The record is a 73-nucleotide RNA, which matches "RAGATH-18 RNA" in Rfam. The family's RNA type in Rfam is small RNA. The family's consensus secondary structure is taken from published work. About the family: Actinobacteria, Firmicutes, Fusobacteria, Thermotogae (1 example). It is one of the family's seed sequences.

[Rfam]
RNA sequence: CCUAUGGAGAGUACAAAAAACUGUGAGUAGAUGGAUAUUUAUAUCAUCAAAAGCAUAUUCGUGGAAGUAGGAA
Numbered sequence: 001c002c003u004a005u006g007g008a009g010a011g012u013a014c015a016a017a018a019a020a021c022u023g024u025g026a027g028u029a030g031a032u033g034g035a036u037a038u039u040u041a042u043a044u045c046a047u048c049a050a051a052a053g054c055a056u057a058u059u060c061g062u063g064g065a066a067g068u069a070g071g072a073a
Stems, first nucleotide, its partner, number of pairs: 001071005009060005022055003030048003034045002